A member of the RNA family "U11 spliceosomal RNA" from Coptis chinensis, 127 nucleotides long.
A reference for the family is Montzka and Steitz (1988), "Additional low-abundance human small nuclear ribonucleoproteins: U11, U12, etc", Proc Natl Acad Sci U S A.
The organism belongs to Coptis, within Eukaryota.
RNA sequence: UAAAAGGGUCGGUUGGCUAAAUAUGCCACGUUCGCCCUCGAUUGGUGAGUGCCGUAUGGCUAUCAAGACAUAUGGCCGACAUAAUUUGUGGAAAUUCAUAGGGUUGGCUCGCUUGGUCGACCCUCAA
Numbered sequence: 001u002a003a004a005a006g007g008g009u010c011g012g013u014u015g016g017c018u019a020a021a022u023a024u025g026c027c028a029c030g031u032u033c034g035c036c037c038u039c040g041a042u043u044g045g046u047g048a049g050u051g052c053c054g055u056a057u058g059g060c061u062a063u064c065a066a067g068a069c070a071u072a073u074g075g076c077c078g079a080c081a082u083a084a085u086u087u088g089u090g091g092a093a094a095u096u097c098a099u100a101g102g103g104u105u106g107g108c109u110c111g112c113u114u115g116g117u118c119g120a121c122c123c124u125c126a127a
Stems, first nucleotide, its partner, number of pairs: 008080005014028004029051008052075007100124010